The record is a 79-nucleotide RNA sequence from Myotis lucifugus, which matches "mir-574 microRNA precursor family" in Rfam. Its family is annotated with RISC complex and miRNA-mediated post-transcriptional gene silencing in the Gene Ontology. A search with the family's covariance model found it, with a score of 82 bits. The base pairs follow the family's consensus structure, which was predicted with RNAalifold. Taxonomically the source falls in Myotis (Eukaryota, Deuterostomia, Chordata, Theria). A reference for the family is Lui et al. (2007), "Patterns of known and novel small RNAs in human cervical cancer", Cancer Res.
[Rfam]
Nucleotides: 079
Base pairs, nucleotide, nucleotide: 007070008069009068010067011066012065013064014063015062016061017060018059022055023054024053025052026051027050030047031046032045033044
Number, partner (000 for none) and nucleotide at each position: 001000a002000g003000a004000c005000c006000c007070a008069g009068a010067g011066a012065g013064a014063g015062g016061c017060a018059g019000g020000g021000u022055c023054u024053g025052a026051u027050c028000c029000g030047c031046a032045g033044c034000c035000u036000c037000a038000g039000u040000g041000g042000c043000a044033g045032c046031u047030g048000u049000u050027g051026a052025u053024c054023a055022g056000u057000a058000c059018u060017u061016g062015c063014c064013u065012c066011u067010c068009u069008c070007u071000c072000u073000c074000c075000c076000u077000c078000u079000u